[Rfam]
RNA: Small nucleolar RNA snR60/Z15/Z230/Z193/J17
RNA sequence: CAGAUACAGUGAUGAUGGCAUAGUUCAGCAGAGCAUCCUGUGAUGACACCUCUGUCUUUCGCUCCUAUCUGAUGUGUCUG
Number, nucleotide and partner (000 for none) at each position: 001c000002a000003g000004a077005u076006a075007c074008a073009g000010u000011g000012a000013u000014g000015a000016u000017g000018g000019c000020a000021u000022a000023g000024u000025u000026c000027a000028g000029c000030a000031g000032a000033g000034c000035a000036u000037c000038c000039u000040g000041u000042g000043a000044u000045g000046a000047c000048a000049c000050c000051u000052c000053u000054g000055u000056c000057u000058u000059u000060c000061g000062c000063u000064c000065c000066u000067a000068u000069c000070u000071g000072a000073u008074g007075u006076g005077u004078c000079u000080g000